[Rfam]
RNA sequence: UUGCACCUUGUAUUUGAAGGUCAUGCUUCGUUCUGGUUGCAUGACCAUUGACACGGGAUGCGUAUAGUAAUUGCUGUUAAAUCAGUAAGCGGCCAGACAACCGUUGGGAUAGAUCCACAGGUGAAAGCGGUUUCUUUCUCUGCUCUUGGCUACUAAAUCUAUCCCACAUUU
Dot-bracket structure: .((((...(((.(.(((.((((((((............)))))))).)))).)))...))))...........................................((((((((..........((.((((.........))))..))..........))))))))......

The record is a 171-nucleotide RNA from Arabis nemorensis, which matches "small nucleolar RNA snoR143" in Rfam. On this family, see Chen and Wu, Nucleic Acids Res 2009: "Mining small RNA sequencing data: a new approach to identify small nucleolar RNAs in Arabidopsis".